Rfam assigns this 129-nucleotide RNA sequence from Stegastes partitus to the family "Small nucleolar RNA SNORA77".
By type it is an H/ACA-box small nucleolar RNA.
Rfam describes the family as follows. ACA63 (SNORA77) is a member of the H/ACA class of snoRNAs that guide the sites of modification of uridines to pseudouridines.
On this family, see Schattner et al., RNA 2006: "A computational screen for mammalian pseudouridylation guide H/ACA RNAs".
NCBI's taxonomy places the organism under Eukaryota, Vertebrata, Neopterygii, Clupeocephala, Stegastes.
The family's consensus secondary structure was predicted with RNAalifold.
Nucleotides: 129
Base pairs, nucleotide, nucleotide: 001055002054003053004052005051006050014042015041016040017039020036022034023033024032067120068119069118070117071116073114074113075112076111077110078109082106085103
Number, partner (000 for none) and nucleotide at each position: 001055g002054c003053a004052g005051a006050c007000u008000c009000a010000c011000u012000c013000u014042g015041u016040u017039c018000u019000u020036u021000g022034c023033u024032g025000u026000g027000c028000a029000c030000u031000c032024c033023a034022g035000c036020a037000u038000u039017g040016a041015a042014c043000u044000u045000u046000u047000u048000c049000u050006g051005u052004c053003u054002g055001c056000u057000a058000c059000a060000u061000g062000a063000a064000c065000a066000u067120g068119c069118a070117g071116g072000a073114u074113g075112u076111a077110c078109c079000a080000c081000u082106u083000u084000a085103c086000u087000g088000g089000c090000c091000u092000u093000c094000u095000a096000a097000a098000a099000g100000g101000c102000u103085g104000g105000u106082g107000u108000c109078g110077g111076u112075a113074u114073g115000a116071u117070c118069u119068g120067c121000u122000a123000c124000a125000u126000a127000c128000u129000g